[Rfam]
RNA sequence: ACCGGCGGAGGAUAGAGUAAGUCGUCGCGAGACGGCUGGCUGUGAAAUUCAAC
Numbered sequence: 001a002c003c004g005g006c007g008g009a010g011g012a013u014a015g016a017g018u019a020a021g022u023c024g025u026c027g028c029g030a031g032a033c034g035g036c037u038g039g040c041u042g043u044g045a046a047a048u049u050c051a052a053c
Base pairs, nucleotide, nucleotide: 020037021036022035023034024033025032026031

A member of the RNA family "leuA-Halobacteria RNA" from Haloferax elongans, 53 nucleotides long. It is one of the family's seed sequences. It is annotated as a cis-regulatory element. The family's consensus secondary structure is taken from published work.